RNA sequence: AUUCAGCAAGGCAAUGGAUUCUGCCUGAUGGCCUGAUGGCGAUCGAACCGCUUCCGCGACGGAGGCUGAUGAUUCCUACCCGACG
Numbered sequence: 001a002u003u004c005a006g007c008a009a010g011g012c013a014a015u016g017g018a019u020u021c022u023g024c025c026u027g028a029u030g031g032c033c034u035g036a037u038g039g040c041g042a043u044c045g046a047a048c049c050g051c052u053u054c055c056g057c058g059a060c061g062g063a064g065g066c067u068g069a070u071g072a073u074u075c076c077u078a079c080c081c082g083a084c085g
Base pairs, nucleotide, nucleotide: 010025011024012023013022016076017075018074020072021071050066051065052064053063054062055061
Shown here is an 85-nucleotide RNA sequence from Acidomonas methanolica, a member of the family "Fluoride riboswitch aptamer (crcB RNA motif)". The match comes from Rfam's covariance-model search (42 bits).